This 100-nucleotide RNA from Clostridium sp. CAG:413 belongs to the Rfam family "Bacterial small signal recognition particle RNA". Pairs were carried over by alignment from the consensus structure, which is taken from published work. Taxonomically the source falls in Clostridium (Bacteria, Bacillota, Eubacteriales, Clostridiaceae). From the family's description: The signal recognition particle (SRP) is a universally conserved ribonucleoprotein involved in the co-translational targeting of proteins to membranes. The match comes from Rfam's covariance-model search (52 bits).
RNA sequence: GUGUGGGUCCUGUGCGACAAGGCACUGCGAACCAUGUCAGGCGGGUGAACCGAGCAGCAUUAAGCGGACAGUUUUGUGCGCCACAGUCUGCCUACCGCCA
Number, nucleotide and partner (000 for none) at each position: 001g000002u000003g000004u094005g093006g092007g091008u090009c000010c086011u085012g084013u083014g082015c078016g000017a077018c076019a075020a074021g073022g072023c000024a000025c067026u066027g065028c064029g000030a000031a000032c000033c000034a060035u059036g058037u057038c000039a000040g000041g000042c052043g051044g050045g000046u000047g000048a000049a000050c044051c043052g042053a000054g000055c000056a000057g037058c036059a035060u034061u000062a000063a000064g028065c027066g026067g025068a000069c000070a000071g000072u022073u021074u020075u019076g018077u017078g015079c000080g000081c000082c014083a013084c012085a011086g010087u000088c000089u000090g008091c007092c006093u005094a004095c000096c000097g000098c000099c000100a000